[Rfam]
Nucleotides: 114
Stems, first nucleotide, its partner, number of pairs: 002113006009106005015100001016098001018097001020095006027088006034081011049066004
Number, partner (000 for none) and nucleotide at each position: 001000u002113u003112a004111u005110a006109a007108g008000u009106a010105a011104a012103a013102g014000u015100c016098a017000a018097c019000u020095u021094u022093u023092u024091a025090g026000a027088u028087u029086c030085a031084u032083u033000a034081a035080a036079u037078a038077a039076c040075u041074g042073a043072u044071g045000u046000a047000u048000u049066u050065g051064g052063u053000c054000u055000a056000u057000a058000u059000a060000u061000a062000a063052a064051c065050c066049a067000u068000a069000u070000a071044c072043a073042u074041u075040a076039g077038u078037u079036a080035u081034u082000c083032a084031a085030u086029g087028a088027a089000u090025c091024u092023a093022a094021a095020a096000u097018g098016u099000g100015g101000a102013c103012u104011u105010u106009u107000g108007c109006u110005u111004a112003u113002a114000a

MIR2593 microRNA precursor family: a 114-nucleotide RNA from Trifolium subterraneum. The base pairs follow the family's consensus structure, which was predicted with RNAalifold.